Overview:
The record is a 142-nucleotide RNA from Musca domestica, which matches "Small nucleolar RNA psi28S-1192" in Rfam. Lineage of the source: Eukaryota > Panarthropoda > Arthropoda > Schizophora > Musca. About the family: psi28S-1192 is a member of the H/ACA class of snoRNA. This family is responsible for guiding the modification of uridine 1192 to pseudouridine in Drosophila 28S rRNA.
RNA sequence: UAAGUGUCCUCUCUAAUGCUAUGCUAUGGCAUACAACCAAUUAACAUAGCCUCGCUUGUGGACAAUAUCAAUAUUGUUUUAUUAUCCUAGUCUAUGAAGUAACUCGCAUUUCAUUCGGCUCGAGAAACGUAAAACUACAAAU
Numbered sequence: 001u002a003a004g005u006g007u008c009c010u011c012u013c014u015a016a017u018g019c020u021a022u023g024c025u026a027u028g029g030c031a032u033a034c035a036a037c038c039a040a041u042u043a044a045c046a047u048a049g050c051c052u053c054g055c056u057u058g059u060g061g062a063c064a065a066u067a068u069c070a071a072u073a074u075u076g077u078u079u080u081a082u083u084a085u086c087c088u089a090g091u092c093u094a095u096g097a098a099g100u101a102a103c104u105c106g107c108a109u110u111u112c113a114u115u116c117g118g119c120u121c122g123a124g125a126a127a128c129g130u131a132a133a134a135c136u137a138c139a140a141a142u
Stems, first nucleotide, its partner, number of pairs: 005064005019049005025043002027040001076135007087124002090121001

The match comes from Rfam's covariance-model search (62 bits). Its family is annotated with RNA processing and nucleolus in the Gene Ontology.